[Rfam]
The record is a 137-nucleotide RNA from Chloroflexi bacterium AL-W, which matches "FMN riboswitch aptamer (RFN element)" in Rfam.
About the family: The RFN element is a highly conserved domain that is found frequently in the 5'-untranslated regions of prokaryotic mRNAs that encode for flavin mononucleotide (FMN) biosynthesis and transport proteins.
RNA sequence: UUGAAUCUUCGGGGCAUGGUGCAAUUCCUGAUCGGCGGUGAUACACCUCGUGAUGAGGUGACAAGCCCGCGAGCCAUAUGGCAGGAUCUGGUGUGACUCCAGAGCCGACGGUAUAGUCCGGAUGGGAGAGGAUUCAG
Dot-bracket structure: ..((((((((.......((.......))..[[((((((..........................[[))))....(.....).....(((((.......)))))]])).(((....]]))).......))))))))..
Numbered sequence: 001u002u003g004a005a006u007c008u009u010c011g012g013g014g015c016a017u018g019g020u021g022c023a024a025u026u027c028c029u030g031a032u033c034g035g036c037g038g039u040g041a042u043a044c045a046c047c048u049c050g051u052g053a054u055g056a057g058g059u060g061a062c063a064a065g066c067c068c069g070c071g072a073g074c075c076a077u078a079u080g081g082c083a084g085g086a087u088c089u090g091g092u093g094u095g096a097c098u099c100c101a102g103a104g105c106c107g108a109c110g111g112u113a114u115a116g117u118c119c120g121g122a123u124g125g126g127a128g129a130g131g132a133u134u135c136a137g
Stems, first nucleotide, its partner, number of pairs: 003135008018028002031117002033107002035070004065105002075081001087103005109120003